[Rfam]
RNA: U7 small nuclear RNA
Organism: Gasterosteus aculeatus
RNA sequence: GAAUCUAUAUGCUCUUUAGAUAUUUUUCUAGUAGGUUUCUCGUAAAGAGAAGCCCUC
Numbered sequence: 001g002a003a004u005c006u007a008u009a010u011g012c013u014c015u016u017u018a019g020a021u022a023u024u025u026u027u028c029u030a031g032u033a034g035g036u037u038u039c040u041c042g043u044a045a046a047g048a049g050a051a052g053c054c055c056u057c
Base pairs, nucleotide, nucleotide: 034054035053036052037051038050039049040048041047